[Rfam]
A member of the RNA family "Bacterial RNase P class A" from Murinocardiopsis flavida, 387 nucleotides long. The match comes from Rfam's covariance-model search (278 bits).
RNA sequence: AGAGUCGGCCAGGCGGUCGCGGCACCCUAUUCGGGGGUGUCGAGGAAAGUCCGGACUCCGCAGGGCAGGGUGGUCGGCAACACCGACCCGGGGCGACCCGCGGGACAGUGCCACAGAGAACAGACCGCCACCGCCGCGGCGGUGGUAAGGGUGAAACGGUGGUGUAAGAGACCACCAGCGGCCGGAGCGAUCCGGUCGGCUCGGUAAACCCCACCCGGAGCAAGGUCAAGAGGGGGGCUUCGGCCCCCUGCGCGGACGAUCGAGGGCGGCCCGCCCGAUGUCCGCGGGUAGACCGCACCGAGGCUGUCGGCAACGGCAGCCCCAGAUGGAUGGCCGCCAGGUCCCCGAGGGGACCGACAGAAUCCGGCUUACCGGCCGACUCUUCCC
Numbered sequence: 001a002g003a004g005u006c007g008g009c010c011a012g013g014c015g016g017u018c019g020c021g022g023c024a025c026c027c028u029a030u031u032c033g034g035g036g037g038u039g040u041c042g043a044g045g046a047a048a049g050u051c052c053g054g055a056c057u058c059c060g061c062a063g064g065g066c067a068g069g070g071u072g073g074u075c076g077g078c079a080a081c082a083c084c085g086a087c088c089c090g091g092g093g094c095g096a097c098c099c100g101c102g103g104g105a106c107a108g109u110g111c112c113a114c115a116g117a118g119a120a121c122a123g124a125c126c127g128c129c130a131c132c133g134c135c136g137c138g139g140c141g142g143u144g145g146u147a148a149g150g151g152u153g154a155a156a157c158g159g160u161g162g163u164g165u166a167a168g169a170g171a172c173c174a175c176c177a178g179c180g181g182c183c184g185g186a187g188c189g190a191u192c193c194g195g196u197c198g199g200c201u202c203g204g205u206a207a208a209c210c211c212c213a214c215c216c217g218g219a220g221c222a223a224g225g226u227c228a229a230g231a232g233g234g235g236g237g238c239u240u241c242g243g244c245c246c247c248c249u250g251c252g253c254g255g256a257c258g259a260u261c262g263a264g265g266g267c268g269g270c271c272c273g274c275c276c277g278a279u280g281u282c283c284g285c286g287g288g289u290a291g292a293c294c295g296c297a298c299c300g301a302g303g304c305u306g307u308c309g310g311c312a313a314c315g316g317c318a319g320c321c322c323c324a325g326a327u328g329g330a331u332g333g334c335c336g337c338c339a340g341g342u343c344c345c346c347g348a349g350g351g352g353a354c355c356g357a358c359a360g361a362a363u364c365c366g367g368c369u370u371a372c373c374g375g376c377c378g379a380c381u382c383u384u385c386c387c
Stems, first nucleotide, its partner, number of pairs: 001383010012338007020042009047370003051367005056220004063272004068216005073087005088102001089100004103211002108209002110205003125150002127146008158176006178200001179198008224294004264276004302321008
Rfam's curators write: Ribonuclease P (RNase P) is a ubiquitous endoribonuclease, found in archaea, bacteria and eukarya as well as chloroplasts and mitochondria. Its family is annotated with dimeric ribonuclease P complex, ribonuclease P activity and tRNA processing in the Gene Ontology. The family's consensus secondary structure is taken from published work.